[Rfam]
Shown here is a 161-nucleotide RNA from Anisodus acutangulus, a member of the family "U1 spliceosomal RNA". Taxonomically the source falls in Anisodus (Eukaryota, Embryophyta, Spermatophyta, eudicotyledons). Rfam classes the family as a spliceosomal small nuclear RNA. For this family Rfam cites "The uRNA database" (Zwieb, Nucleic Acids Res, 1997).

RNA sequence: GUACUUACAUAGACGGGGUCAAUGGGCGAUUAAAAAGGCUCAUGGCCUAGAUUUGUGAUCUCCAUUGCACUUUGGAGGGGCACUUGCGUAAGGUCAGCCCAAGUGGUCGAACCUACGUCAUAAUUUGUAACAGUGGGGGCUUGCGUUCGCGUGGCCCCUAU
Numbered sequence: 001g002u003a004c005u006u007a008c009a010u011a012g013a014c015g016g017g018g019u020c021a022a023u024g025g026g027c028g029a030u031u032a033a034a035a036a037g038g039c040u041c042a043u044g045g046c047c048u049a050g051a052u053u054u055g056u057g058a059u060c061u062c063c064a065u066u067g068c069a070c071u072u073u074g075g076a077g078g079g080g081c082a083c084u085u086g087c088g089u090a091a092g093g094u095c096a097g098c099c100c101a102a103g104u105g106g107u108c109g110a111a112c113c114u115a116c117g118u119c120a121u122a123a124u125u126u127g128u129a130a131c132a133g134u135g136g137g138g139g140c141u142u143g144c145g146u147u148c149g150c151g152u153g154g155c156c157c158c159u160a161u
Base pairs, nucleotide, nucleotide: 012119013118014117015116016048017047018046019045020044021043023042024041025040026039027038049089053086055083056082057081059079060078061077062075063074091114092113093112094110095109098106099105134160135159136158137157138156142153143152144151145150